[Rfam]
RNA sequence: AGCUGUUGCAGUUUCGGUGGCCCAUUUUCCUCCCAGUGCCGCCGCAGCAGCUGUUCCCCUCUGGAGGUUUUGGAAACCUUCAACCUUACAGGACCCAAGUUUUCUUGCGGUCCUUUUUU
Numbered sequence: 001a002g003c004u005g006u007u008g009c010a011g012u013u014u015c016g017g018u019g020g021c022c023c024a025u026u027u028u029c030c031u032c033c034c035a036g037u038g039c040c041g042c043c044g045c046a047g048c049a050g051c052u053g054u055u056c057c058c059c060u061c062u063g064g065a066g067g068u069u070u071u072g073g074a075a076a077c078c079u080u081c082a083a084c085c086u087u088a089c090a091g092g093a094c095c096c097a098a099g100u101u102u103u104c105u106u107g108c109g110g111u112c113c114u115u116u117u118u119u
Stems, first nucleotide, its partner, number of pairs: 001052005007046003017042004062082007090114006096107004